Shown here is a 251-nucleotide sequence from Paenibacillus sp. Leaf72, a member of the family "glmS glucosamine-6-phosphate activated ribozyme aptamer". By type it is a riboswitch.
Nucleotides: 251
Base pairs, nucleotide, nucleotide: 020132021131022130023129024128026126141172142171143170144169145168149161150160151159152158173192174191175190176189177188196241197240198239199238200237201236210227211226212225214223215222216221
Number, partner (000 for none) and nucleotide at each position: 001000a002000c003000u004000g005000c006000a007000a008000u009000a010000u011000a012000a013000g014000c015000g016000c017000c018000a019000g020132a021131g022130c023129u024128u025000g026126c027000g028000u029000g030000a031000u032000g033000a034000u035000u036000c037000g038000u039000u040000u041000u042000g043000a044000u045000g046000c047000u048000c049000u050000a051000c052000g053000u054000a055000a056000c057000c058000g059000a060000u061000g062000a063000a064000u065000g066000g067000g068000c069000u070000g071000c072000a073000u074000g075000u076000u077000g078000g079000a080000u081000g082000u083000g084000c085000g086000g087000a088000u089000a090000c091000a092000g093000u094000g095000g096000u097000u098000a099000u100000g101000g102000a103000g104000a105000a106000g107000c108000a109000c110000u111000c112000g113000g114000g115000g116000c117000g118000a119000u120000c121000a122000u123000a124000c125000g126026g127000g128024a129023a130022g131021c132020u133000g134000a135000c136000g137000a138000g139000g140000u141172g142171g143170a144169g145168g146000u147000g148000u149161u150160c151159g152158a153000a154000a155000u156000g157000u158152u159151c160150g161149g162000c163000g164000g165000g166000g167000g168145c169144c170143u171142c172141c173192c174191g175190g176189u177188u178000a179000u180000a181000g182000c183000a184000u185000g186000c187000c188177a189176a190175c191174c192173g193000a194000a195000a196241g197240c198239u199238g200237a201236g202000a203000c204000g205000c206000a207000a208000a209000a210227u211226g212225a213000u214223u215222g216221g217000g218000c219000g220000a221216c222215c223214a224000u225212u226211c227210a228000u229000a230000c231000a232000a233000a234000c235000g236201u237200u238199c239198a240197g241196c242000a243000g244000g245000c246000a247000u248000c249000a250000a251000c